[Rfam]
RNA sequence: CAUAUACCCAUGUGUGUAGAAUCUCAAAUGAUCACUAUUAAAUUUGGCACAAAUCUUUAAAAAAGUUAUCACAUAAAUGUGGGACUUGACUUUUUUAGAGAUCUGUGCCAAAUUUAAUGGUGAUCAUUUGGGGUCCUACACACAUGGGUGUAAG
Numbered sequence: 001c002a003u004a005u006a007c008c009c010a011u012g013u014g015u016g017u018a019g020a021a022u023c024u025c026a027a028a029u030g031a032u033c034a035c036u037a038u039u040a041a042a043u044u045u046g047g048c049a050c051a052a053a054u055c056u057u058u059a060a061a062a063a064a065g066u067u068a069u070c071a072c073a074u075a076a077a078u079g080u081g082g083g084a085c086u087u088g089a090c091u092u093u094u095u096u097a098g099a100g101a102u103c104u105g106u107g108c109c110a111a112a113u114u115u116a117a118u119g120g121u122g123a124u125c126a127u128u129u130g131g132g133g134u135c136c137u138a139c140a141c142a143c144a145u146g147g148g149u150g151u152a153a154g
Stems, first nucleotide, its partner, number of pairs: 003152011015140005021134008030125003034121018053102016069082005
The record is a 154-nucleotide RNA sequence from Amborella trichopoda, which matches "MIR8565 microRNA precursor family" in Rfam.